[Rfam]
RNA sequence: AAACGAGGUCCAGAGUCACCUUUGAGAAUAAGUAUCUUUUUGGUGCUAGGAUAACUCGAAAAUAAAAUAGGGACUUUAUGCAAACAGUUCUUGCGUUUGGCUCAUCUGUUUCACCUCCGUUUCUGACAAU
Numbered sequence: 001a002a003a004c005g006a007g008g009u010c011c012a013g014a015g016u017c018a019c020c021u022u023u024g025a026g027a028a029u030a031a032g033u034a035u036c037u038u039u040u041u042g043g044u045g046c047u048a049g050g051a052u053a054a055c056u057c058g059a060a061a062a063u064a065a066a067a068u069a070g071g072g073a074c075u076u077u078a079u080g081c082a083a084a085c086a087g088u089u090c091u092u093g094c095g096u097u098u099g100g101c102u103c104a105u106c107u108g109u110u111u112c113a114c115c116u117c118c119g120u121u122u123c124u125g126a127c128a129a130u
Base pairs, nucleotide, nucleotide: 004058005057006056007055008052009051010050011049014047015046017045018044019043020042025037027035069124070123071122074119079113080112082111083110084109085108087106089104093101094100
A member of the RNA family "C. elegans snoRNA ceN100" from Caenorhabditis latens, 130 nucleotides long. The family has 4 seed sequences and 23 matches in Rfam 15.1. The family's consensus secondary structure was predicted with RNAalifold. Gene Ontology terms of the family: RNA processing and nucleolus. By type it is an H/ACA-box small nucleolar RNA. NCBI's taxonomy places the organism under Eukaryota, Eumetazoa, Rhabditina, Rhabditidae, Caenorhabditis.